[Rfam]
RNA sequence: CGCAGGCAUGCGCGGGAGCACGACCAGGCCGGUGUAGGCCGGCAGCGCCGUGGUAACGGCUGGGAUCCUGUCCCCGGGGCCUGCACGAUG
Numbered sequence: 001c002g003c004a005g006g007c008a009u010g011c012g013c014g015g016g017a018g019c020a021c022g023a024c025c026a027g028g029c030c031g032g033u034g035u036a037g038g039c040c041g042g043c044a045g046c047g048c049c050g051u052g053g054u055a056a057c058g059g060c061u062g063g064g065a066u067c068c069u070g071u072c073c074c075c076g077g078g079g080c081c082u083g084c085a086c087g088a089u090g
Stems, first nucleotide, its partner, number of pairs: 002084006011077001013076004022072002025070003028043006047060004
DUF3800-VII RNA: a 90-nucleotide sequence. Pairs were carried over by alignment from the consensus structure, which is taken from published work. The sequence is in the family's curated seed alignment.